[Rfam]
Nucleotides: 105
Base pairs, nucleotide, nucleotide: 001101002100003099004098005097006096007095008094010093011092014089015088016084017083018082020080040066043063
Number, partner (000 for none) and nucleotide at each position: 001101g002100g003099c004098u005097a006096g007095u008094c009000c010093g011092a012000a013000g014089g015088u016084a017083g018082u019000u020080a021000c022000c023000u024000c025000a026000a027000u028000u029000c030000a031000u032000u033000u034000u035000u036000c037000a038000c039000a040066a041000u042000u043063a044000c045000g046000a047000a048000u049000c050000a051000a052000g053000c054000u055000c056000c057000u058000u059000g060000u061000u062000c063043u064000g065000c066040u067000c068000u069000u070000c071000u072000u073000c074000u075000c076000c077000u078000u079000c080020u081000c082018a083017c084016u085000a086000c087000u088015g089014u090000a091000c092011u093010u094008g095007a096006c097005u098004a099003g100002u101001c102000u103000u104000u105000a
The record is a 105-nucleotide RNA from Pongo abelii, which matches "Y RNA" in Rfam. It is annotated as a non-coding RNA gene. The match comes from Rfam's covariance-model search (48 bits). The family has 104 seed sequences and 26,986 matches in Rfam 15.1.